[Rfam]
RNA sequence: UUCGCGAAAACCAAGAACGAAAAUAUUUGCAUAGCAAUACUAGGAACCACCUCCUUGGCCAACCCAAUCUCCCUUGGGUUGGCUUUUCU
Numbered sequence: 001u002u003c004g005c006g007a008a009a010a011c012c013a014a015g016a017a018c019g020a021a022a023a024u025a026u027u028u029g030c031a032u033a034g035c036a037a038u039a040c041u042a043g044g045a046a047c048c049a050c051c052u053c054c055u056u057g058g059c060c061a062a063c064c065c066a067a068u069c070u071c072c073c074u075u076g077g078g079u080u081g082g083c084u085u086u087u088c089u
Stems, first nucleotide, its partner, number of pairs: 042055004057084011

The family of this 89-nucleotide sequence from Gibbsiella quercinecans is "CyaR/Rye RNA".
The family's consensus secondary structure was predicted with PFOLD.
Rfam classes the family as a small RNA.
NCBI's taxonomy places the organism under Bacteria, Pseudomonadati, Gammaproteobacteria, Enterobacterales, Gibbsiella.
Rfam describes the family as follows. This sRNA was originally identified in a large scale screen of E. coli.